Shown here is an 84-nucleotide RNA from Acetoanaerobium sticklandii, a member of the family "c-di-GMP-I riboswitch aptamer".
Its family is annotated with cyclic-di-GMP binding in the Gene Ontology.
The organism belongs to Acetoanaerobium sticklandii, within Bacteria.
RNA sequence: UCACGACAAUGGCAAAGUAGUAGAAAUGCUAUGACGCAAAGCUAUAGGGCCUUACCGUAACUGGUUGGCAGCCUAGCUACCGAA
Number, nucleotide and partner (000 for none) at each position: 001u000002c000003a000004c000005g000006a000007c000008a000009a000010u000011g000012g037013c036014a000015a000016a000017g032018u031019a030020g029021u028022a027023g000024a000025a000026a000027u022028g021029c020030u019031a018032u017033g000034a000035c000036g013037c012038a000039a000040a078041g077042c076043u075044a000045u000046a074047g073048g072049g069050c068051c067052u000053u000054a000055c000056c063057g062058u000059a000060a000061c000062u057063g056064g000065u000066u000067g051068g050069c049070a000071g000072c048073c047074u046075a043076g042077c041078u040079a000080c000081c000082g000083a000084a000

Pairs were carried over by alignment from the consensus structure, which is taken from published work.